Eukaryotic large subunit ribosomal RNA: a 567-nucleotide part of an RNA from Bilobella aurantiaca. The family has 88 seed sequences and 107,465 matches in Rfam 15.1.
[Rfam]
RNA sequence: GAAGACCCUGAUGAGCUUGACUCUAGUUUGGCAUUGUGAGGAGAUGCAGGAGGUGUAGCAUAAGUGGGAGAUUUACGUCGUCUUUGAAAUACCACUACUCCUGUCGUUUCCUCACUUACUCGGUGAGGCGGGGAGCGUCUGCUUUCUUGUUCGCAAGGAGUAGACGGAAUUGUUGAGCCAAGUCUCUAGUCUCUUAGAGAGCGGGUAUUUUUUGGAGGGUGGAUGUUUAUGGGCAACUGUGAGCAUUCAUUUGAAAAUUAAUAUUGAGACGACUCGAUCCGAGGACACCGCCAGGCGGGGAGUUUGACUGGGGCGGUACAUCUGUCAAAUGAUAACGCAGGUGUCCUAAGGCCAGCUCAGUGAGGACAGAAACCUCACGUAGAGCAAAAGGGCAAAAGCUGGCUUGAUCCUGAUUUUCAGUAUGAAUACGGACUGCGAAAGCACGGCCUAUCGAUCCUUUUGGCUUCAAGAGUUUUGAGCAAGAGGUGUCAGUAAAGUUACCACAGGGAUAACUGGCUUGUGGCGGCCAAGCGUUCAUAGCGACGUCGCUUUUUGAUCCUUCGAUGU
Numbered sequence: 001g002a003a004g005a006c007c008c009u010g011a012u013g014a015g016c017u018u019g020a021c022u023c024u025a026g027u028u029u030g031g032c033a034u035u036g037u038g039a040g041g042a043g044a045u046g047c048a049g050g051a052g053g054u055g056u057a058g059c060a061u062a063a064g065u066g067g068g069a070g071a072u073u074u075a076c077g078u079c080g081u082c083u084u085u086g087a088a089a090u091a092c093c094a095c096u097a098c099u100c101c102u103g104u105c106g107u108u109u110c111c112u113c114a115c116u117u118a119c120u121c122g123g124u125g126a127g128g129c130g131g132g133g134a135g136c137g138u139c140u141g142c143u144u145u146c147u148u149g150u151u152c153g154c155a156a157g158g159a160g161u162a163g164a165c166g167g168a169a170u171u172g173u174u175g176a177g178c179c180a181a182g183u184c185u186c187u188a189g190u191c192u193c194u195u196a197g198a199g200a201g202c203g204g205g206u207a208u209u210u211u212u213u214g215g216a217g218g219g220u221g222g223a224u225g226u227u228u229a230u231g232g233g234c235a236a237c238u239g240u241g242a243g244c245a246u247u248c249a250u251u252u253g254a255a256a257a258u259u260a261a262u263a264u265u266g267a268g269a270c271g272a273c274u275c276g277a278u279c280c281g282a283g284g285a286c287a288c289c290g291c292c293a294g295g296c297g298g299g300g301a302g303u304u305u306g307a308c309u310g311g312g313g314c315g316g317u318a319c320a321u322c323u324g325u326c327a328a329a330u331g332a333u334a335a336c337g338c339a340g341g342u343g344u345c346c347u348a349a350g351g352c353c354a355g356c357u358c359a360g361u362g363a364g365g366a367c368a369g370a371a372a373c374c375u376c377a378c379g380u381a382g383a384g385c386a387a388a389a390g391g392g393c394a395a396a397a398g399c400u401g402g403c404u405u406g407a408u409c410c411u412g413a414u415u416u417u418c419a420g421u422a423u424g425a426a427u428a429c430g431g432a433c434u435g436c437g438a439a440a441g442c443a444c445g446g447c448c449u450a451u452c453g454a455u456c457c458u459u460u461u462g463g464c465u466u467c468a469a470g471a472g473u474u475u476u477g478a479g480c481a482a483g484a485g486g487u488g489u490c491a492g493u494a495a496a497g498u499u500a501c502c503a504c505a506g507g508g509a510u511a512a513c514u515g516g517c518u519u520g521u522g523g524c525g526g527c528c529a530a531g532c533g534u535u536c537a538u539a540g541c542g543a544c545g546u547c548g549c550u551u552u553u554u555g556a557u558c559c560u561u562c563g564a565u566g567u
Stems, first nucleotide, its partner, number of pairs: 007507004012503002014499005020303004027295006036115010046104007063096005070079002119283005129276004137165009182270005306319001307317003320342006345446002351403006357383002360378006384393002408432003413427004434443003457485006465479004516557001518555001520554001522550006531541002
Dot-bracket structure: ......((((.(((((((.((((...((((((...(((((((((((((((((..........(((((..((......))............))))).))))))).))))))))))...(((((.....((((....(((((((((...........)))))))))................(((((...............................................................................)))))..))))..)))))......))))))....))))..((((.....))).)((((((...........))))))..((....((((((((.((((((.......))))))...))((......))....))))))....(((..((((.......))))..))).(((....))).))..........((((((..((((.......)))))))))).........)))))..))))))........(.(.(.((((((...((.......))...))))))...)).)..........